[Rfam]
RNA: Group II catalytic intron D1-D4-1
RNA sequence: UAAUUUAUCUAGUGAUAGAUAACUGAACUGUCAGAAGUCAGCAGAAGUCAUAGUACUUGAUGGUUCGAAACAUCAAGGAAGGAC
Numbered sequence: 001u002a003a004u005u006u007a008u009c010u011a012g013u014g015a016u017a018g019a020u021a022a023c024u025g026a027a028c029u030g031u032c033a034g035a036a037g038u039c040a041g042c043a044g045a046a047g048u049c050a051u052a053g054u055a056c057u058u059g060a061u062g063g064u065u066c067g068a069a070a071c072a073u074c075a076a077g078g079a080a081g082g083a084c
Stems, first nucleotide, its partner, number of pairs: 001025002005022007038045002047084003056077006